[Rfam]
RNA: Selenocysteine transfer RNA
RNA sequence: GGAGGGGCGUCAUCUCCGGUGAGGUGGCAGGAUUUCAAAUCCUGUUGAGGACGCCAGCGUUCUUGGGUGGGUUCAACUCCCAUUCCCCUCC
Number, nucleotide and partner (000 for none) at each position: 001g091002g090003a089004g088005g087006g086007g085008c000009g083010u000011c026012a025013u024014c023015u022016c021017c000018g000019g000020u000021g016022a015023g014024g013025u012026g011027g045028c044029a043030g042031g041032a040033u000034u000035u000036c000037a000038a000039a000040u032041c031042c030043u029044g028045u027046u000047g064048a063049g062050g061051a060052c000053g000054c000055c000056a000057g000058c000059g000060u051061u050062c049063u048064u047065g000066g000067g000068u082069g081070g080071g079072u000073u000074c000075a000076a000077c000078u000079c071080c070081c069082a068083u009084u000085c007086c006087c005088c004089u003090c002091c001